The record is a 76-nucleotide RNA from Alligator sinensis, which matches "Mammalian CPEB3 ribozyme" in Rfam.
It scores 36 bits against the family's covariance model.

RNA sequence: ACAAGUUUGAGGCCAUGGCAGAAGCACUCACGGCAUGGGCAGCAUGUCAGAUUCCAACAAAUCUGUGAAUUCUGCU
Numbered sequence: 001a002c003a004a005g006u007u008u009g010a011g012g013c014c015a016u017g018g019c020a021g022a023a024g025c026a027c028u029c030a031c032g033g034c035a036u037g038g039g040c041a042g043c044a045u046g047u048c049a050g051a052u053u054c055c056a057a058c059a060a061a062u063c064u065g066u067g068a069a070u071u072c073u074g075c076u
Stems, first nucleotide, its partner, number of pairs: 008044002011040001013038002017076007024036001048065006